[Rfam]
Rfam assigns this 56-nucleotide RNA from Lichenifustis flavocetrariae to the family "sul1 RNA". The family's consensus secondary structure is taken from published work. Rfam 15.1 lists 519 matches to the family in 480 species. Lineage of the source: Bacteria > Pseudomonadati > Pseudomonadota > Hyphomicrobiales > Lichenifustis. By type it is a riboswitch.
RNA sequence: ACUGGACCCGGUGCAAUUCCGGGUGGCUAUUUCGGCCGCCGAUCCGCCGAACAACG
Numbered sequence: 001a002c003u004g005g006a007c008c009c010g011g012u013g014c015a016a017u018u019c020c021g022g023g024u025g026g027c028u029a030u031u032u033c034g035g036c037c038g039c040c041g042a043u044c045c046g047c048c049g050a051a052c053a054a055c056g
Base pairs, nucleotide, nucleotide: 006024007023008022009021010020011019031051032050033049034048035047036046